About this RNA
A member of the RNA family "ZMP/ZTP riboswitch aptamer (pfl RNA motif)" from Rathayibacter sp. Leaf296, 104 nucleotides long. The source organism's lineage runs through Bacteria, Bacillati, Actinomycetota, Micrococcales and Rathayibacter. A search with the family's covariance model found it, with a score of 41 bits.

RNA sequence: UGGCCCCGCCGCGACUGGCGUUCGGAUGGGUGACCAUCAGGGAGCGGCACCUCCUCCGGGGCGCGCUCCGGACACUUUUCCCGCCGCACGCCUGGGCUGGAACG
Numbered sequence: 001u002g003g004c005c006c007c008g009c010c011g012c013g014a015c016u017g018g019c020g021u022u023c024g025g026a027u028g029g030g031u032g033a034c035c036a037u038c039a040g041g042g043a044g045c046g047g048c049a050c051c052u053c054c055u056c057c058g059g060g061g062c063g064c065g066c067u068c069c070g071g072a073c074a075c076u077u078u079u080c081c082c083g084c085c086g087c088a089c090g091c092c093u094g095g096g097c098u099g100g101a102a103c104g
Base pairs, nucleotide, nucleotide: 003053008048009047010046011045012044015041016040017092018091019090020089021088026037027036028035029034081099083097084096085095